[Rfam]
The record is a 190-nucleotide RNA from Aneurinibacillus danicus, which matches "Lysine riboswitch aptamer" in Rfam.
The organism belongs to Aneurinibacillus, within Bacteria.
A search with the family's covariance model found it, with a score of 125 bits.
Nucleotides: 190
Stems, first nucleotide, its partner, number of pairs: 006185006017085004023079003033070001035068005089119011120147002124143004129138002149175009
Number, partner (000 for none) and nucleotide at each position: 001000u002000g003000a004000u005000g006185g007184g008183g009182u010181a011180g012000a013000g014000g015000u016000c017085g018084c019083g020082g021000g022000a023079u024078u025077u026000a027000a028000g029000a030000g031000u032000a033070c034000g035068c036067u037066g038065c039064g040000g041000g042000a043000g044000a045000u046000g047000u048000g049000g050000a051000g052000a053000a054000c055000a056000u057000c058000g059000g060000u061000g062000a063000a064039c065038g066037c067036a068035g069000g070033g071000g072000a073000a074000a075000g076000g077025a078024a079023a080000g081000a082020c083019c084018g085017c086000c087000g088000a089119a090118g091117c092116u093115u094114g095113u096112c097111c098110g099109g100000g101000u102000u103000c104000u105000c106000c107000g108000g109099c110098c111097g112096g113095a114094c115093g116092g117091g118090u119089u120147g121146g122000g123000g124143c125142u126141g127140u128000a129138u130137c131000c132000g133000a134000a135000u136000a137130g138129g139000a140127a141126c142125a143124g144000a145000a146121c147120u148000g149175u150174c151173a152172c153171g154170c155169g156168u157167a158000u159000g160000u161000u162000c163000c164000g165000g166000u167157u168156a169155c170154g171153c172152g173151u174150g175149g176000u177000g178000c179000g180011c181010u182009a183008u184007c185006u186000u187000g188000c189000a190000g